This 160-nucleotide RNA sequence from Eragrostis curvula belongs to the Rfam family "U1 spliceosomal RNA". Lineage of the source: Eukaryota > Streptophyta > Tracheophyta > Poaceae > Eragrostis. The match comes from Rfam's covariance-model search (127 bits). The family's consensus secondary structure is taken from published work. The family's RNA type in Rfam is spliceosomal small nuclear RNA.
Nucleotides: 160
Stems, first nucleotide, its partner, number of pairs: 012119004016048005023042005049089003053086001055083003060078001062075002092113002094110003098106002135159005142153004
Number, partner (000 for none) and nucleotide at each position: 001000a002000u003000a004000c005000u006000u007000a008000c009000c010000u011000g012119g013118a014117u015116g016048g017047g018046g019045u020044c021000u022000a023042u024041g025040g026039g027038c028000g029000a030000u031000c032000a033000u034000g035000a036000a037000u038027g039026c040025u041024c042023a043000u044020g045019g046018c047017c048016u049089a050088g051087a052000u053086c054000a055083a056082u057081g058000g059000u060078u061000c062075a063074c064000a065000u066000u067000g068000c069000a070000c071000u072000u073000g074063g075062u076000g077000a078060a079000u080000g081057c082056g083055u084000u085000g086053g087051u088050c089049u090000a091000c092113c093112a094110u095109c096108u097000c098106c099105c100000c101000a102000a103000g104000u105099g106098g107000g108096a109095g110094a111000g112093u113092g114000a115000a116015c117014g118013u119012c120000a121000u122000a123000a124000u125000u126000u127000g128000u129000g130000g131000c132000a133000g134000a135159g136158g137157g138156g139155g140000u141000a142153c143152g144151c145150g146000u147000u148000c149000g150145c151144g152143c153142g154000g155139c156138c157137c158136c159135u160000g